The record is a 119-nucleotide RNA, which matches "Flavobacterium-1 RNA" in Rfam. The sequence is in the family's curated seed alignment. The family's consensus secondary structure is taken from published work. It is annotated as a small RNA.
[Rfam]
RNA sequence: AAGCUCAAGGGCGUCCAAAUCUUGCCAAUGGCAUUUCCCUGUACGUUAGCUAUUAUGGGUAAAACCUAGCAACCUGGAGUUUGGCCGAUUGUUAGUACGUGCACGGAAAGCAAUCGGUU
Numbered sequence: 001a002a003g004c005u006c007a008a009g010g011g012c013g014u015c016c017a018a019a020u021c022u023u024g025c026c027a028a029u030g031g032c033a034u035u036u037c038c039c040u041g042u043a044c045g046u047u048a049g050c051u052a053u054u055a056u057g058g059g060u061a062a063a064a065c066c067u068a069g070c071a072a073c074c075u076g077g078a079g080u081u082u083g084g085c086c087g088a089u090u091g092u093u094a095g096u097a098c099g100u101g102c103a104c105g106g107a108a109a110g111c112a113a114u115c116g117g118u119u
Base pairs, nucleotide, nucleotide: 001082002081003080004079005078006077008075009074010073011046012045013044014043016041017040023033024032025031026030049070050069057066058065084118085117086116087115088114089113090112091111092110098105099104